[Rfam]
RNA sequence: AUUUGCAGGAUCAGUGUGAGGCGUUGGAUUGAUUUCACUCAAUCCGAGCCCCACAUUCAACAGGGGUUCCU
Number, nucleotide and partner (000 for none) at each position: 001a000002u000003u000004u066005g000006c064007a000008g000009g061010a000011u059012c000013a057014g056015u055016g054017u053018g052019a000020g050021g049022c048023g000024u047025u046026g045027g044028a043029u042030u041031g040032a039033u000034u000035u000036c000037a000038c000039u032040c031041a030042a029043u028044c027045c026046g025047a024048g022049c021050c020051c000052c018053a017054c016055a015056u014057u013058c000059a011060a000061c009062a000063g000064g006065g000066g004067u000068u000069c000070c000071u000